Small nucleolar RNA SNORA79: a 143-nucleotide RNA from Bos taurus.
Rfam links the family to the GO terms RNA processing and nucleolus.
The family's consensus secondary structure was predicted with RNAalifold.
Rfam classes the family as an H/ACA-box small nucleolar RNA.
[Rfam]
RNA sequence: UGAUGAUGUUCCUCCUAUUGCCUUCAGGCCUGACAUUAGGGUUUUAGGUCAUCAUAAAAUAAAAUUUGCUUUUUCUUCACUCAGAGAAUAUUAGGGUAACGGGAUUGUCUACUUAUUCUCUGAAUUUGCAGAGUCAAACACUU
Numbered sequence: 001u002g003a004u005g006a007u008g009u010u011c012c013u014c015c016u017a018u019u020g021c022c023u024u025c026a027g028g029c030c031u032g033a034c035a036u037u038a039g040g041g042u043u044u045u046a047g048g049u050c051a052u053c054a055u056a057a058a059a060u061a062a063a064a065u066u067u068g069c070u071u072u073u074u075c076u077u078c079a080c081u082c083a084g085a086g087a088a089u090a091u092u093a094g095g096g097u098a099a100c101g102g103g104a105u106u107g108u109c110u111a112c113u114u115a116u117u118c119u120c121u122g123a124a125u126u127u128g129c130a131g132a133g134u135c136a137a138a139c140a141c142u143u
Stems, first nucleotide, its partner, number of pairs: 001054006007047001013041005019035002022032001068135001070133004081123010094110005